RNA: TPP riboswitch aptamer (THI element)
RNA sequence: GUGAGCACACACGGGAGUCCGGUAGGCCGGGCUGAGAGGAAGGUCAUCAACCUUCGACCGUCGAACCUGAUCUGGAUCAUGCCAGCGCAGGGAGACACUCUUCUACAUAC
Numbered sequence: 001g002u003g004a005g006c007a008c009a010c011a012c013g014g015g016a017g018u019c020c021g022g023u024a025g026g027c028c029g030g031g032c033u034g035a036g037a038g039g040a041a042g043g044u045c046a047u048c049a050a051c052c053u054u055c056g057a058c059c060g061u062c063g064a065a066c067c068u069g070a071u072c073u074g075g076a077u078c079a080u081g082c083c084a085g086c087g088c089a090g091g092g093a094g095a096c097a098c099u100c101u102u103c104u105a106c107a108u109a110c
Base pairs, nucleotide, nucleotide: 010094011061012060013059014058017032018031019030020029021028039055040054041053042052043051066091067090068089069088072085073084074083075082